[Rfam]
RNA sequence: UGGUCUAGUUCUGUGUGGAAGACUAGUGAUUUUGUUGUUUUAGAUAACUGACAACAAAUCACAGUCUGCCGUAUGGCACAGACCA
Dot-bracket structure: .(((((.((.((((((((.(((((.(((((((.((((((..........)))))))))))))))))).)))))))).))))))).